[Rfam]
Rfam assigns this 42-nucleotide sequence from Orobanche austrohispanica to the family "Plastid-rpl16 group II-D1 intron". The organism belongs to Orobanche, within Eukaryota. From the family's description: Plastid-rpl16 is a non-coding RNA (ncRNA) recognised in plastids. It was recognised in and intronic region of a ribosome rpl16 gene. A reference for the family is Richter et al. (2023), "Retrograde signaling in plants: A critical review focusing on the GUN pathway and beyond", Plant Commun. The family's consensus secondary structure was predicted with LocARNA. The sequence is in the family's curated seed alignment.
RNA sequence: AGGGCUUAGAGCCAAUAAAGACUGAGAAGGUUGACUCAAAAA
Dot-bracket structure: .....((.(((.((((.............)))).))).))..